The record is a 312-nucleotide RNA sequence from Candidatus Mycoplasma haematobovis, which matches "Bacterial RNase P class B" in Rfam. Its Rfam clan is "RNaseP clan". Rfam describes the family as follows. Ribonuclease P (RNase P) is a ubiquitous endoribonuclease, found in archaea, bacteria and eukarya as well as chloroplasts and mitochondria. Its best characterised activity is the generation of mature 5'-ends of tRNAs by cleaving the 5'-leader elements of precursor-tRNAs. It is annotated as a ribozyme. NCBI's taxonomy places the organism under Bacteria, Mycoplasmatota, Mollicutes, Mycoplasmatales, Mycoplasma. A search with the family's covariance model found it, with a score of 182 bits. Rfam links the family to the GO terms tRNA processing, dimeric ribonuclease P complex and ribonuclease P activity. For this family Rfam cites "Ribonuclease P: unity and diversity in a tRNA processing ribozyme" (Frank and Pace, Annu Rev Biochem, 1998).

RNA sequence: AAUAGUUGCUGAUUGCUAGUUCAAUUUUAAUUGAAUUAGGGGAAAGUCCUUACUUCCAUGGUCUGAGAUGACCAUAAUGAUGACGCGGGUAUAUAAAAAAUAAAACCCGACACCUUUUGGGUGAUGACCAGUGCCACAGAGACGAGCAUAUUAAGUUAUGAGUGAAACGCGGUAAACUCCGUCAGGAAGAAACCUAAAUUAUGGUAAGGGAAUUCGCUUGAAAAAAAUGAAUGGAGAGCGAAAAUACAAGCAAGUGUAUUAGAUUAAUUAUCAGCGUGCUGUUUAAACAGUAACAGAAUAAGGCUUAUUAAU
Numbered sequence: 001a002a003u004a005g006u007u008g009c010u011g012a013u014u015g016c017u018a019g020u021u022c023a024a025u026u027u028u029a030a031u032u033g034a035a036u037u038a039g040g041g042g043a044a045a046g047u048c049c050u051u052a053c054u055u056c057c058a059u060g061g062u063c064u065g066a067g068a069u070g071a072c073c074a075u076a077a078u079g080a081u082g083a084c085g086c087g088g089g090u091a092u093a094u095a096a097a098a099a100a101u102a103a104a105a106c107c108c109g110a111c112a113c114c115u116u117u118u119g120g121g122u123g124a125u126g127a128c129c130a131g132u133g134c135c136a137c138a139g140a141g142a143c144g145a146g147c148a149u150a151u152u153a154a155g156u157u158a159u160g161a162g163u164g165a166a167a168c169g170c171g172g173u174a175a176a177c178u179c180c181g182u183c184a185g186g187a188a189g190a191a192a193c194c195u196a197a198a199u200u201a202u203g204g205u206a207a208g209g210g211a212a213u214u215c216g217c218u219u220g221a222a223a224a225a226a227a228u229g230a231a232u233g234g235a236g237a238g239c240g241a242a243a244a245u246a247c248a249a250g251c252a253a254g255u256g257u258a259u260u261a262g263a264u265u266a267a268u269u270a271u272c273a274g275c276g277u278g279c280u281g282u283u284u285a286a287a288c289a290g291u292a293a294c295a296g297a298a299u300a301a302g303g304c305u306u307a308u309u310a311a312u
Stems, first nucleotide, its partner, number of pairs: 004312001006310001008275006016039008044306003048303005053189005058075006081184005086109005110125001111123005126179002131177002133173003148159003193209003213242007243260006278291005